[Rfam]
RNA sequence: AAAUACCUCCCCAAAACGCCUCGUUGGUGAAACGUCAUCAUGACGUCAUCAUUCAUUUGAUAAUCAAAUGAAUGAUGACGUCAUGAUGACGUUUCACCAACGAGGCGUUUUGGGGAGGUAUUUUCU
Numbered sequence: 001a002a003a004u005a006c007c008u009c010c011c012c013a014a015a016a017c018g019c020c021u022c023g024u025u026g027g028u029g030a031a032a033c034g035u036c037a038u039c040a041u042g043a044c045g046u047c048a049u050c051a052u053u054c055a056u057u058u059g060a061u062a063a064u065c066a067a068a069u070g071a072a073u074g075a076u077g078a079c080g081u082c083a084u085g086a087u088g089a090c091g092u093u094u095c096a097c098c099a100a101c102g103a104g105g106c107g108u109u110u111u112g113g114g115g116a117g118g119u120a121u122u123u124u125c126u
Stems, first nucleotide, its partner, number of pairs: 003121019023101011035089026

A member of the RNA family "MIR4387 microRNA precursor family" from Notothenia coriiceps, 126 nucleotides long. Rfam 15.1 lists 24 matches to the family in 7 species. The match comes from Rfam's covariance-model search (86 bits). Rfam links the family to the GO terms RISC complex and miRNA-mediated post-transcriptional gene silencing. The family is grouped with related families in Rfam's "MIR4387 microRNA precursor clan".